[Rfam]
RNA sequence: GGCAGUAACAGCAUAGUAGAGUGAGAACCUCUACCACCGCAAGCGCAAGGGUUUCCAGGCAAUGCGUUAUCAGCCUGGAGUUAGUCGAUCCUAAGGAUUACCUCAACAGAGUAAUUCGAAAGGGAAACUGGUUAAUAUUCCAGUACCUUGCAAGUUGCGUUAUUAUCUAUAUGAACCGCUUCCGGAUAGGGAGAGCAUAACCAUCGUUGUGUCUAAGUGUUCUAGAGAUGGGGAGUGUCGUAAUGACGAGAACCAUCUCGAGGCAUUAAUGGCUCUGCGUUAGCAGAGUUCUCUUGAGUCCAGGGGACCUUGAAAAUUUGUGUAGAAAGUGACUUGCAAGUUCGUACCGAGAACCGACACAGGUGCGCUGGCUUAGAAAGCUAAGGUGCUA
Numbered sequence: 001g002g003c004a005g006u007a008a009c010a011g012c013a014u015a016g017u018a019g020a021g022u023g024a025g026a027a028c029c030u031c032u033a034c035c036a037c038c039g040c041a042a043g044c045g046c047a048a049g050g051g052u053u054u055c056c057a058g059g060c061a062a063u064g065c066g067u068u069a070u071c072a073g074c075c076u077g078g079a080g081u082u083a084g085u086c087g088a089u090c091c092u093a094a095g096g097a098u099u100a101c102c103u104c105a106a107c108a109g110a111g112u113a114a115u116u117c118g119a120a121a122g123g124g125a126a127a128c129u130g131g132u133u134a135a136u137a138u139u140c141c142a143g144u145a146c147c148u149u150g151c152a153a154g155u156u157g158c159g160u161u162a163u164u165a166u167c168u169a170u171a172u173g174a175a176c177c178g179c180u181u182c183c184g185g186a187u188a189g190g191g192a193g194a195g196c197a198u199a200a201c202c203a204u205c206g207u208u209g210u211g212u213c214u215a216a217g218u219g220u221u222c223u224a225g226a227g228a229u230g231g232g233g234a235g236u237g238u239c240g241u242a243a244u245g246a247c248g249a250g251a252a253c254c255a256u257c258u259c260g261a262g263g264c265a266u267u268a269a270u271g272g273c274u275c276u277g278c279g280u281u282a283g284c285a286g287a288g289u290u291c292u293c294u295u296g297a298g299u300c301c302a303g304g305g306g307a308c309c310u311u312g313a314a315a316a317u318u319u320g321u322g323u324a325g326a327a328a329g330u331g332a333c334u335u336g337c338a339a340g341u342u343c344g345u346a347c348c349g350a351g352a353a354c355c356g357a358c359a360c361a362g363g364u365g366c367g368c369u370g371g372c373u374u375a376g377a378a379a380g381c382u383a384a385g386g387u388g389c390u391a
Stems, first nucleotide, its partner, number of pairs: 016034006035388004043368004049348002054079006063072002086344003090123002095117006102109002127144005147340008173318002179306004184301003189295005195212005217266004227257005237247003278283001354363002369383004
RNA: Archaeal large subunit ribosomal RNA, nucleotides 1390 to 1780